RNA sequence: CGAUGUCCCACACCCAACCCUGAAGAGCCCAGGUGGGCGAGGGAAUAGUCAGAGGGAUC
Numbered sequence: 001c002g003a004u005g006u007c008c009c010a011c012a013c014c015c016a017a018c019c020c021u022g023a024a025g026a027g028c029c030c031a032g033g034u035g036g037g038c039g040a041g042g043g044a045a046u047a048g049u050c051a052g053a054g055g056g057a058u059c
Stems, first nucleotide, its partner, number of pairs: 006044004011039001013037004018032001025059002028056003
The record is a 59-nucleotide sequence from Oryctolagus cuniculus, which matches "Antizyme RNA frameshifting stimulation element" in Rfam. The family's consensus secondary structure is taken from published work. A search with the family's covariance model found it, with a score of 67 bits. On this family, see Ivanov et al., J Mol Biol 2004: "Identification of a new antizyme mRNA +1 frameshifting stimulatory pseudoknot in a subset of diverse invertebrates and its apparent absence in intermediate species". Lineage of the source: Eukaryota > Metazoa > Eumetazoa > Deuterostomia > Oryctolagus. This family represents a structural element which is found in antizyme mRNA and is known to promote frameshifting. Antizyme genes have have two partially overlapping open reading frames, the second, which encodes the functional protein requires +1 translational frameshifting. This frameshift is stimulated by a pseudoknot present 3' of the frameshift site in the antizyme mRNA. The frameshifting efficiency is dependent on the level of polyamines in the cell, when the polyamine concentration is high frameshifting is more likely to occur which leads to an increase in the quantity of functional antizyme produced.